RNA sequence: UUUGGGAAAUGAUGCCCAGAUUCAAACGAGGCGCCAGCUGUAUAUGCUGAUUAAUCAAUUGCACGGCAGUCUGAUCCAAAA
Numbered sequence: 001u002u003u004g005g006g007a008a009a010u011g012a013u014g015c016c017c018a019g020a021u022u023c024a025a026a027c028g029a030g031g032c033g034c035c036a037g038c039u040g041u042a043u044a045u046g047c048u049g050a051u052u053a054a055u056c057a058a059u060u061g062c063a064c065g066g067c068a069g070u071c072u073g074a075u076c077c078a079a080a081a
Base pairs, nucleotide, nucleotide: 001081002080003079005077006076007075
The family of this 81-nucleotide RNA sequence from Populus trichocarpa is "Small nucleolar RNA Z122". The organism belongs to Populus, within Eukaryota. The match comes from Rfam's covariance-model search (41 bits). A reference for the family is Qu et al. (1999), "Seven novel methylation guide small nucleolar RNAs are processed from a common polycistronic transcript by Rat1p and RNase III in yeast", Mol Cell Biol.